[Rfam]
Source information
permuted transfer-messenger RNA: a 212-nucleotide RNA sequence from Sandarakinorhabdus sp. It scores 139 bits against the family's covariance model. The family's consensus secondary structure is taken from published work.
RNA sequence: GGCGAUAAAUGGCGUCGUGAAAUAGACGCAGCGGACCCGGGGGCAGUACCCGGCGACUCCACCAUAAACCUUUGUUGUCGAAGGGAUGCGGGGUCGAACCAGGAUCGACGUGUGUUCAAAGACGAGAGCUUUUGCCCGGCAUGAAUAAGCCGUUAAAUGUUUCAAAAACCCUAAAUGCCAACGACAACGAGGCAUUCGCAAUCGCAGCGUAA
Numbered sequence: 001g002g003c004g005a006u007a008a009a010u011g012g013c014g015u016c017g018u019g020a021a022a023u024a025g026a027c028g029c030a031g032c033g034g035a036c037c038c039g040g041g042g043g044c045a046g047u048a049c050c051c052g053g054c055g056a057c058u059c060c061a062c063c064a065u066a067a068a069c070c071u072u073u074g075u076u077g078u079c080g081a082a083g084g085g086a087u088g089c090g091g092g093g094u095c096g097a098a099c100c101a102g103g104a105u106c107g108a109c110g111u112g113u114g115u116u117c118a119a120a121g122a123c124g125a126g127a128g129c130u131u132u133u134g135c136c137c138g139g140c141a142u143g144a145a146u147a148a149g150c151c152g153u154u155a156a157a158u159g160u161u162u163c164a165a166a167a168a169c170c171c172u173a174a175a176u177g178c179c180a181a182c183g184a185c186a187a188c189g190a191g192g193c194a195u196u197c198g199c200a201a202u203c204g205c206a207g208c209g210u211a212a
Stems, first nucleotide, its partner, number of pairs: 001136005015125004027114003031111003037053005054096007137152004